The family of this 66-nucleotide RNA from Cricetulus griseus is "Small nucleolar RNA Z39".
Rfam 15.1 lists 935 matches to the family in 520 species.
The base pairs follow the family's consensus structure, which was predicted with PFOLD.
Rfam links the family to the GO terms RNA processing and nucleolus.
The source organism's lineage runs through Eukaryota, Deuterostomia, Teleostomi, Mammalia and Cricetulus.
RNA sequence: CUACAUGUGAUGAAGCAAGUCAGUAUGGAUAAAACUCAUGAUAGCACGUAAAUGCUUUCUGAUGUA
Numbered sequence: 001c002u003a004c005a006u007g008u009g010a011u012g013a014a015g016c017a018a019g020u021c022a023g024u025a026u027g028g029a030u031a032a033a034a035c036u037c038a039u040g041a042u043a044g045c046a047c048g049u050a051a052a053u054g055c056u057u058u059c060u061g062a063u064g065u066a
Stems, first nucleotide, its partner, number of pairs: 002066004012058005021048001023045001024043003